[Rfam]
RNA sequence: UAAUUUAGACAAACAAAAAGGAAGCCUUGCAUUAACAAGACUUCCCCAGUAGAGCCGUUUAAGACGGUAGCAAUUAAUUAGUGAUUAAAUA
Number, nucleotide and partner (000 for none) at each position: 001u000002a000003a000004u000005u000006u000007a000008g000009a000010c000011a000012a000013a000014c000015a000016a000017a000018a000019a000020g000021g000022a000023a000024g000025c000026c039027u038028u037029g036030c000031a000032u000033u000034a000035a000036c029037a028038a027039g026040a000041c000042u000043u000044c000045c000046c000047c000048a000049g000050u000051a000052g000053a000054g068055c067056c066057g065058u064059u063060u000061a000062a000063g059064a058065c057066g056067g055068u054069a000070g000071c000072a000073a000074u000075u000076a000077a000078u000079u000080a000081g000082u000083g000084a000085u000086u000087a000088a000089a000090u000091a000
RNA: RNA anti-toxin A